This 82-nucleotide RNA from Emergencia timonensis belongs to the Rfam family "Clostridiales-2 RNA". The match comes from Rfam's covariance-model search (64 bits). The family's RNA type in Rfam is small RNA. The organism belongs to Emergencia, within Bacteria.
RNA sequence: AAAAAAGUGGGGGUGCGCAGAGGGAAUAGCCUCGCCGCCCUAAGGAGGGUGCCUAGCCUGCAAAGCAGGCGCCGAAGGGAAC
Numbered sequence: 001a002a003a004a005a006a007g008u009g010g011g012g013g014u015g016c017g018c019a020g021a022g023g024g025a026a027u028a029g030c031c032u033c034g035c036c037g038c039c040c041u042a043a044g045g046a047g048g049g050u051g052c053c054u055a056g057c058c059u060g061c062a063a064a065g066c067a068g069g070c071g072c073c074g075a076a077g078g079g080a081a082c
Stems, first nucleotide, its partner, number of pairs: 015035002020033004056070005